Background:
TPP riboswitch aptamer (THI element): a 115-nucleotide RNA sequence from Lentimonas sp. CC11. The match comes from Rfam's covariance-model search (60 bits). Gene Ontology term of the family: thiamine pyrophosphate binding.
RNA sequence: GCUUAGAUAUAGGAGAGCUCCAGGCGUGGAGCUGAGAUUUGGGUGCGCUCCACCCGUAGAUCCUUUGAACCUGAUGCGUGUUAACACCGCCGUAGGGAUUAUCGAGUCGAAUGGG
Numbered sequence: 001g002c003u004u005a006g007a008u009a010u011a012g013g014a015g016a017g018c019u020c021c022a023g024g025c026g027u028g029g030a031g032c033u034g035a036g037a038u039u040u041g042g043g044u045g046c047g048c049u050c051c052a053c054c055c056g057u058a059g060a061u062c063c064u065u066u067g068a069a070c071c072u073g074a075u076g077c078g079u080g081u082u083a084a085c086a087c088c089g090c091c092g093u094a095g096g097g098a099u100u101a102u103c104g105a106g107u108c109g110a111a112u113g114g115g
Base pairs, nucleotide, nucleotide: 006103007102008101009100011064012063013062014061017032018031019030020029021028040056041055042054043053044052045051070096071095072094073093076090077089078088080087